The record is an 85-nucleotide RNA sequence from Leersia perrieri, which matches "Small nucleolar RNA U54" in Rfam. Taxonomically the source falls in Leersia (Eukaryota, Magnoliopsida, Liliopsida, Poales). Pairs were carried over by alignment from the consensus structure, which was predicted with PFOLD. Rfam describes the family as follows. U54 is a C/D box small nucleolar RNA, which acts as a methylation guide for 18S ribosomal RNA in plants.
[Rfam]
Nucleotides: 085
Stems, first nucleotide, its partner, number of pairs: 001085005
Number, partner (000 for none) and nucleotide at each position: 001085u002084g003083c004082u005081c006000a007000a008000u009000g010000a011000u012000u013000a014000a015000g016000c017000c018000a019000u020000g021000u022000u023000u024000u025000u026000a027000u028000g029000g030000c031000a032000a033000u034000a035000u036000a037000c038000g039000c040000u041000a042000u043000u044000c045000u046000g047000a048000a049000u050000c051000a052000u053000a054000u055000u056000a057000a058000g059000u060000a061000a062000g063000a064000u065000g066000u067000c068000a069000u070000a071000a072000a073000c074000a075000c076000u077000a078000u079000g080000a081005g082004a083003g084002c085001a